[Rfam]
RNA sequence: UUUUCUGUGGUUCGAGAACCUCCCACAUAAAAAAACUAAGGAUAU
Number, nucleotide and partner (000 for none) at each position: 001u000002u000003u000004u000005c000006u027007g026008u025009g024010g023011u000012u000013c000014g000015a000016g037017a000018a000019c000020c000021u000022c000023c010024c009025a008026c007027a006028u000029a000030a000031a000032a000033a000034a000035a000036c000037u016038a000039a000040g000041g000042a000043u000044a000045u000
RNA: PreQ1 (pre queuosine) riboswitch aptamer